This 85-nucleotide sequence from Paenibacillus abyssi belongs to the Rfam family "c-di-GMP-I riboswitch aptamer".
[Rfam]
RNA sequence: AACGAAUAAGGGCAAACCUUACGAAAGCAAGGGACGCAAAGCUAUGGACCUACGGAAGCCCAUCUAUGGUCGCCAGGCUGCUGAA
Numbered sequence: 001a002a003c004g005a006a007u008a009a010g011g012g013c014a015a016a017c018c019u020u021a022c023g024a025a026a027g028c029a030a031g032g033g034a035c036g037c038a039a040a041g042c043u044a045u046g047g048a049c050c051u052a053c054g055g056a057a058g059c060c061c062a063u064c065u066a067u068g069g070u071c072g073c074c075a076g077g078c079u080g081c082u083g084a085a
Stems, first nucleotide, its partner, number of pairs: 012037002017032004022027001040079004045075003048070003055064002